This 46-nucleotide RNA from Lacipirellula parvula belongs to the Rfam family "Acido-Lenti-1 RNA". The base pairs follow the family's consensus structure, which is taken from published work. The match comes from Rfam's covariance-model search (49 bits). Lineage of the source: Bacteria > Planctomycetota > Pirellulales > Lacipirellulaceae > Lacipirellula. It is annotated as a small RNA.
RNA sequence: CCAGGGGCUUGCGCCCCUGGCUACAUGAUUUCGUCCCUCCGGGACU
Numbered sequence: 001c002c003a004g005g006g007g008c009u010u011g012c013g014c015c016c017c018u019g020g021c022u023a024c025a026u027g028a029u030u031u032c033g034u035c036c037c038u039c040c041g042g043g044a045c046u
Stems, first nucleotide, its partner, number of pairs: 001020008033045005